[Rfam]
RNA sequence: UUUUUUAGGGAAGUUCUGGCCUCUCAACAAAGAGAGGCCAGGAAAUUUUCUU
Numbered sequence: 001u002u003u004u005u006u007a008g009g010g011a012a013g014u015u016c017u018g019g020c021c022u023c024u025c026a027a028c029a030a031a032g033a034g035a036g037g038c039c040a041g042g043a044a045a046u047u048u049u050c051u052u
Stems, first nucleotide, its partner, number of pairs: 008052006015042011
Dot-bracket structure: .......((((((.(((((((((((......)))))))))))....))))))